The record is a 129-nucleotide RNA from Octodon degus, which matches "Small nucleolar RNA SNORA61" in Rfam. The base pairs follow the family's consensus structure, which was predicted with PFOLD. Rfam links the family to the GO terms RNA processing and nucleolus. From the family's description: ACA61 is a member of the H/ACA class of snoRNA that guide the sites of modification of uridines to pseudouridines. The organism belongs to Octodon, within Eukaryota.
RNA sequence: ACCCUCCAGUUCCCUUUCCCACUGGAUCUGAACACUGGUCUUGGUGGUCAUAAAGGAGGAAAAGGAAUGCUGAAACUGGCCUCACAGACAUAUUCUGUUACAGAAAAUGCAGGCUACUACCAAACAGGG
Numbered sequence: 001a002c003c004c005u006c007c008a009g010u011u012c013c014c015u016u017u018c019c020c021a022c023u024g025g026a027u028c029u030g031a032a033c034a035c036u037g038g039u040c041u042u043g044g045u046g047g048u049c050a051u052a053a054a055g056g057a058g059g060a061a062a063a064g065g066a067a068u069g070c071u072g073a074a075a076c077u078g079g080c081c082u083c084a085c086a087g088a089c090a091u092a093u094u095c096u097g098u099u100a101c102a103g104a105a106a107a108u109g110c111a112g113g114c115u116a117c118u119a120c121c122a123a124a125c126a127g128g129g
Base pairs, nucleotide, nucleotide: 003059004058005057006056007055019047020046021045022044023043025040026039027038028037077116078115079114080113081112082111091107093105